[Rfam]
RNA sequence: CGGGGGAGGCCGGAUCGGAUCCUGGGCUGUGUCCUGGCGCCCUAUGCUCCGGGGCCUGCGCUGUUGUAUUCGCGCUCCCACCCCGCAGCCCCCU
Numbered sequence: 001c002g003g004g005g006g007a008g009g010c011c012g013g014a015u016c017g018g019a020u021c022c023u024g025g026g027c028u029g030u031g032u033c034c035u036g037g038c039g040c041c042c043u044a045u046g047c048u049c050c051g052g053g054g055c056c057u058g059c060g061c062u063g064u065u066g067u068a069u070u071c072g073c074g075c076u077c078c079c080a081c082c083c084c085g086c087a088g089c090c091c092c093c094u
Stems, first nucleotide, its partner, number of pairs: 002093005009086002012082002024078003028074004032068001034066001035063006046055003
RNA: mir-8799 microRNA precursor family